RNA: mraW RNA
Organism: Lentinula raphanica
RNA sequence: GUGGGUAAAUGUUUUCGUUUCUCUCCGUAGGAGGGCUGGCACAACUUACCCUGUGCCAGCCCUCCUACGGAGAGAAACGAAAAAUACCAUGUGACCUCA
Numbered sequence: 001g002u003g004g005g006u007a008a009a010u011g012u013u014u015u016c017g018u019u020u021c022u023c024u025c026c027g028u029a030g031g032a033g034g035g036c037u038g039g040c041a042c043a044a045c046u047u048a049c050c051c052u053g054u055g056c057c058a059g060c061c062c063u064c065c066u067a068c069g070g071a072g073a074g075a076a077a078c079g080a081a082a083a084a085u086a087c088c089a090u091g092u093g094a095c096c097u098c099a
Stems, first nucleotide, its partner, number of pairs: 010086006016079002019076024